RNA: Streptomyces RNA 5676
RNA sequence: GGAUGAGAGAUACACCCCGUCCGCAGGGGACUGCGGGCGAUCCCGGGCCGAGGCCUCCCCAGCUUCGACUCGGUCGUGCCCUCGCGCACACCCCCGGAGCCUUGCGCUCCGGAUAUCCUCACCGAUCGGA
Numbered sequence: 001g002g003a004u005g006a007g008a009g010a011u012a013c014a015c016c017c018c019g020u021c022c023g024c025a026g027g028g029g030a031c032u033g034c035g036g037g038c039g040a041u042c043c044c045g046g047g048c049c050g051a052g053g054c055c056u057c058c059c060c061a062g063c064u065u066c067g068a069c070u071c072g073g074u075c076g077u078g079c080c081c082u083c084g085c086g087c088a089c090a091c092c093c094c095c096g097g098a099g100c101c102u103u104g105c106g107c108u109c110c111g112g113a114u115a116u117c118c119u120c121a122c123c124g125a126u127c128g129g130a
Base pairs, nucleotide, nucleotide: 004121005120006119007118009117010116018039019038020037021036022035023034024033025032026031043073044072045071046070047069049067050066051065052064053063054062076089077088078087079086094112095111096110097109098108099107100106122129123128